[Rfam]
RNA sequence: GGCGAUUCUCGGGUGACGUGUCCCAGAAUCGGGCUCCCUCUUCUCUGGUUCUGGGUGCGUCACCCAAGAACUGCA
Numbered sequence: 001g002g003c004g005a006u007u008c009u010c011g012g013g014u015g016a017c018g019u020g021u022c023c024c025a026g027a028a029u030c031g032g033g034c035u036c037c038c039u040c041u042u043c044u045c046u047g048g049u050u051c052u053g054g055g056u057g058c059g060u061c062a063c064c065c066a067a068g069a070a071c072u073g074c075a
Base pairs, nucleotide, nucleotide: 002074003073006070007069008068009067011065012064013063014062015061016060017059019057020056021055022054023053025052026051027050028049029048030047031046032045033044